Nucleotides: 161
Stems, first nucleotide, its partner, number of pairs: 013117001015115001016048006023042005049087003053084001056080002059077005090113003093109003097105002134160001136158003140155001143152001145150001
Number, partner (000 for none) and nucleotide at each position: 001000a002000u003000a004000c005000u006000u007000a008000c009000c010000u011000c012000a013117a014000c015115g016048g017047g018046g019045u020044c021043a022000a023042u024041c025040g026039g027038u028000g029000a030000u031000c032000a033000a034000g035000a036000a037000g038027g039026c040025u041024g042023a043021u044020g045019g046018c047017c048016u049087a050086g051085g052000g053084u054000g055000g056080c057079u058000a059077c060076c061075u062074u063073c064000a065000u066000u067000g068000c069000a070000u071000u072000u073063g074062a075061g076060g077059g078000u079057g080056g081000a082000u083000c084053a085051u086050c087049u088000u089000g090113g091112u092111a093109u094108c095107u096000c097105u098104u099000c100000a101000a102000g103000u104098a105097g106000g107095a108094g109093a110000g111092u112091a113090c114000a115015c116000a117013u118000c119000a120000u121000g122000a123000u124000u125000u126000g127000a128000g129000u130000u131000u132000g133000a134160g135000u136158u137157g138156a139000a140155u141000c142000u143152g144000u145150a146000u147000g148000g149000a150145u151000u152143u153000u154000u155140a156138u157137c158136a159000u160134u161000c